Eukaryotic small subunit ribosomal RNA: a 162-nucleotide part of an RNA from Dendroctonus ponderosae. The source organism's lineage runs through Eukaryota, Insecta, Aparaglossata, Scolytinae and Dendroctonus. Its Rfam clan is "SSU clan".
RNA sequence: CCGCCCGUCGCCUCAAUCGACUGGAUGAUCCGGUGAACCAUUCGGACCAAUGAGCUAUUGCCUUCGGGUGACAGUUCAUGGGAAGUCUUGUAAACCAAAUCAUCUGAAGAAUGAGAAAGUCGUAACACGGUAUCCGUAGGUGAACCUGCGGAUGGAUCAUUC
Numbered sequence: 001c002c003g004c005c006c007g008u009c010g011c012c013u014c015a016a017u018c019g020a021c022u023g024g025a026u027g028a029u030c031c032g033g034u035g036a037a038c039c040a041u042u043c044g045g046a047c048c049a050a051u052g053a054g055c056u057a058u059u060g061c062c063u064u065c066g067g068g069u070g071a072c073a074g075u076u077c078a079u080g081g082g083a084a085g086u087c088u089u090g091u092a093a094a095c096c097a098a099a100u101c102a103u104c105u106g107a108a109g110a111a112u113g114a115g116a117a118a119g120u121c122g123u124a125a126c127a128c129g130g131u132a133u134c135c136g137u138a139g140g141u142g143a144a145c146c147u148g149c150g151g152a153u154g155g156a157u158c159a160u161u162c
Stems, first nucleotide, its partner, number of pairs: 001129001003126001006122002009119001012115004017110002021106001023105007032096003037091002040088001043085001047081003051078006059070004131154010